c-di-AMP riboswitch aptamer (ydaO/yuaA leader): a 135-nucleotide RNA sequence from Paenibacillus abyssi.
RNA sequence: ACAUAAUAAUUGCCGAAUUUUCAGUAAUGAAAAACGGGGGACCCAUUGCGGGUGAAUUAAUCCUGAUGUUGAGGGAUUAUAGGGAACCUUCUACCGAAUCCUUAGCUAACCUCGUAGGCACCGGAAGGAGAACUU
Numbered sequence: 001a002c003a004u005a006a007u008a009a010u011u012g013c014c015g016a017a018u019u020u021u022c023a024g025u026a027a028u029g030a031a032a033a034a035c036g037g038g039g040g041a042c043c044c045a046u047u048g049c050g051g052g053u054g055a056a057u058u059a060a061u062c063c064u065g066a067u068g069u070u071g072a073g074g075g076a077u078u079a080u081a082g083g084g085a086a087c088c089u090u091c092u093a094c095c096g097a098a099u100c101c102u103u104a105g106c107u108a109a110c111c112u113c114g115u116a117g118g119c120a121c122c123g124g125a126a127g128g129a130g131a132a133c134u135u
Stems, first nucleotide, its partner, number of pairs: 011120004018033006034115006050101003058079007082095002085092001
Dot-bracket structure: ..........((((...((((((....))))))((((((..........(((.....(((((((........)))))))..((.(......).))...)))........)))))).))))...............